[Rfam]
RNA sequence: GGUUUCCGUCGGUGCAAAUACAAUCACCUAAAUUUAAGAUGAUAAGCAAUUCCCCAUUGGCAAAAGGGUUAUCCAUUAAGCGGGGAAAAUCAGCA
Number, nucleotide and partner (000 for none) at each position: 001g000002g000003u000004u000005u000006c000007c000008g000009u023010c000011g021012g000013u000014g000015c000016a000017a000018a000019u000020a000021c011022a000023a009024u000025c000026a000027c000028c000029u000030a000031a000032a000033u000034u000035u000036a000037a000038g000039a000040u000041g000042a000043u000044a000045a000046g000047c000048a000049a000050u000051u000052c085053c084054c083055c082056a076057u075058u000059g073060g072061c000062a070063a069064a000065a000066g000067g000068g000069u063070u062071a000072u060073c059074c000075a057076u056077u000078a000079a000080g000081c000082g055083g054084g053085g052086a000087a000088a000089a000090u000091c000092a000093g000094c000095a000
A member of the RNA family "Plastid-rps12 3UTR RNA" from Vitis rotundifolia, 95 nucleotides long. Taxonomically the source falls in Vitis (Eukaryota, Streptophyta, Spermatophyta, eudicotyledons). Rfam's curators write: Plastid rpl20 is a non-coding RNA (ncRNA) recognised in plastids. It was found in the three prime untranslated region (3UTR) of rps12 gene, its 3UTR location sugest a role in transcript maduration. A reference for the family is Richter et al. (2023), "Retrograde signaling in plants: A critical review focusing on the GUN pathway and beyond", Plant Commun. The family has 1,299 seed sequences and 1,710 matches in Rfam 15.1. The base pairs follow the family's consensus structure, which was predicted with LocARNA.